The family of this 129-nucleotide sequence from Trichinella spiralis is "U11 spliceosomal RNA". The organism belongs to Trichinella, within Eukaryota. By type it is a spliceosomal small nuclear RNA.
[Rfam]
RNA sequence: UGAAAGGGCUUAAGCUGCUUACUUUAUGUAACAGACAUUAAAUUAUUGUUUAAUGAAGAUCGCUAUCAAGAGAUCUCUUAAGCAUAAUUUUUUGUGAAGGAGCAGUUGAGUUUAAAACUUGGCGCUCCG
Numbered sequence: 001u002g003a004a005a006g007g008g009c010u011u012a013a014g015c016u017g018c019u020u021a022c023u024u025u026a027u028g029u030a031a032c033a034g035a036c037a038u039u040a041a042a043u044u045a046u047u048g049u050u051u052a053a054u055g056a057a058g059a060u061c062g063c064u065a066u067c068a069a070g071a072g073a074u075c076u077c078u079u080a081a082g083c084a085u086a087a088u089u090u091u092u093u094g095u096g097a098a099g100g101a102g103c104a105g106u107u108g109a110g111u112u113u114a115a116a117a118c119u120u121g122g123c124g125c126u127c128c129g
Base pairs, nucleotide, nucleotide: 008083009082010081011080012079036055037054038053039052040051041050042049056078057076058075059074060073061072100127101126102125103124105123106122107121108120109119110118111117112116
Pairs were carried over by alignment from the consensus structure, which is taken from published work.